This 34-nucleotide RNA sequence from Paenibacillus pini belongs to the Rfam family "L31-Firmicutes ribosomal protein leader". The base pairs follow the family's consensus structure, which is taken from published work. The literature on the family includes a 2020 paper in BMC Microbiol by Eckert and Weinberg, "Discovery of 20 novel ribosomal leader candidates in bacteria and archaea". The organism belongs to Paenibacillus pini, within Bacteria.

[Rfam]
RNA sequence: CUCUGGGCACGCAUGAGGUUCAGGGCAAAAAGAG
Numbered sequence: 001c002u003c004u005g006g007g008c009a010c011g012c013a014u015g016a017g018g019u020u021c022a023g024g025g026c027a028a029a030a031a032g033a034g
Stems, first nucleotide, its partner, number of pairs: 001025008